[Rfam]
RNA: Alpha operon ribosome binding site
RNA sequence: AUUUUUUGUUCAUUGCAAGAUAGUCUUACGCGUUUCCCGUGACCGGGGCGUAAGUACGUGUAGCAGGAGAGGCUGAUGGCCCGUAUUGCAGGCAUAAACAUUCCCGUG
Numbered sequence: 001a002u003u004u005u006u007u008g009u010u011c012a013u014u015g016c017a018a019g020a021u022a023g024u025c026u027u028a029c030g031c032g033u034u035u036c037c038c039g040u041g042a043c044c045g046g047g048g049c050g051u052a053a054g055u056a057c058g059u060g061u062a063g064c065a066g067g068a069g070a071g072g073c074u075g076a077u078g079g080c081c082c083g084u085a086u087u088g089c090a091g092g093c094a095u096a097a098a099c100a101u102u103c104c105c106g107u108g
Stems, first nucleotide, its partner, number of pairs: 004053002007050005024092003029083002032080001038106002